MIR2275 microRNA precursor family: a 90-nucleotide sequence from Coptis chinensis.
[Rfam]
RNA sequence: UAUUGGAAUUUGAGAAUUGGAUGAAACCAAAUCAUUUUGGCCUCUAGACUGGCGCGGGUUUGGUUUCCUCCAAUAUCUCACCUUCAAUAG
Number, nucleotide and partner (000 for none) at each position: 001u000002a000003u000004u087005g000006g085007a084008a083009u000010u000011u080012g079013a078014g077015a000016a074017u073018u072019g071020g070021a069022u000023g067024a066025a065026a064027c063028c062029a061030a060031a000032u058033c057034a000035u000036u000037u000038u000039g000040g000041c000042c000043u000044c000045u000046a000047g000048a000049c000050u000051g000052g000053c000054g000055c000056g000057g033058g032059u000060u030061u029062g028063g027064u026065u025066u024067c023068c000069u021070c020071c019072a018073a017074u016075a000076u000077c014078u013079c012080a011081c000082c000083u008084u007085c006086a000087a004088u000089a000090g000